[Rfam]
RNA sequence: ACACUGGCAGGCGAUGGAGUCCGCCAAGGUUUGAUGACUCCUACUCCCGA
Numbered sequence: 001a002c003a004c005u006g007g008c009a010g011g012c013g014a015u016g017g018a019g020u021c022c023g024c025c026a027a028g029g030u031u032u033g034a035u036g037a038c039u040c041c042u043a044c045u046c047c048c049g050a
Base pairs, nucleotide, nucleotide: 010025011024012023013022016041017040018039019038020037021036

Rfam assigns this 50-nucleotide sequence to the family "Fluoride riboswitch aptamer (crcB RNA motif)". The base pairs follow the family's consensus structure, which is taken from published work.